[Rfam]
RNA sequence: CAGGCUCAAUAGUAAUGUUGAGUUGUCCAUGACAGAAGUCAGCCGAGGCCAUAGUAGCCAGUAAUGGUGAGGGGC
Numbered sequence: 001c002a003g004g005c006u007c008a009a010u011a012g013u014a015a016u017g018u019u020g021a022g023u024u025g026u027c028c029a030u031g032a033c034a035g036a037a038g039u040c041a042g043c044c045g046a047g048g049c050c051a052u053a054g055u056a057g058c059c060a061g062u063a064a065u066g067g068u069g070a071g072g073g074g075c
Stems, first nucleotide, its partner, number of pairs: 001025002004023008039046002048075003057068004
Dot-bracket structure: ((.((((((((....)))))))))).............((....)).(((......((((....))))....)))
Description
This 75-nucleotide RNA from Lactiplantibacillus plantarum belongs to the Rfam family "Group II catalytic intron D1-D4-1". The family has 237 seed sequences and 2,508 matches in Rfam 15.1. NCBI's taxonomy places the organism under Bacteria, Bacillati, Lactobacillales, Lactiplantibacillus, Lactiplantibacillus plantarum.